[Rfam]
RNA sequence: UCCGAGACUAGAGUCUCAUCCUGACACGCUGCCGUUGUCUUGGUGUGCUAGAGCUCUCGCAGAGUGAAGACUGAUCUUAUUCACCGACUGGCUCCUCUCUCGGUCCAGUCGGCCACAGGGUCAGUGACACAU
Numbered sequence: 001u002c003c004g005a006g007a008c009u010a011g012a013g014u015c016u017c018a019u020c021c022u023g024a025c026a027c028g029c030u031g032c033c034g035u036u037g038u039c040u041u042g043g044u045g046u047g048c049u050a051g052a053g054c055u056c057u058c059g060c061a062g063a064g065u066g067a068a069g070a071c072u073g074a075u076c077u078u079a080u081u082c083a084c085c086g087a088c089u090g091g092c093u094c095c096u097c098u099c100u101c102g103g104u105c106c107a108g109u110c111g112g113c114c115a116c117a118g119g120g121u122c123a124g125u126g127a128c129a130c131a132u
Stems, first nucleotide, its partner, number of pairs: 003059004008053002012049002015047001017045004023039004071124007084112004089107003093103002
Dot-bracket structure: ..((((.((..((.(.((((..((((.........))))..)))).)))..))..))))...........(((((((......((((.(((.((.......)).))).)))).....)))))))........
Source information
Shown here is a 132-nucleotide RNA sequence from Anguilla anguilla, a member of the family "Small nucleolar RNA SNORA3/SNORA45 family". About the family: The members of this family belong to the H/ACA class of snoRNAs which are thought to guide the sites of modification of uridines to pseudouridines. This family includes mouse snoMBI-28 and human homologues ACA3 (SNORA3) and ACA3-2 (SNORA45). Both ACA3 and ACA3-2 share the same host gene. MBI-28, ACA3 and ACA3-2 are all predicted to guide the pseudouridylation of residues in 28S rRNA. The family has 6 seed sequences and 2,080 matches in Rfam 15.1. Its family is annotated with RNA processing and nucleolus in the Gene Ontology. The organism belongs to Anguilla, within Eukaryota.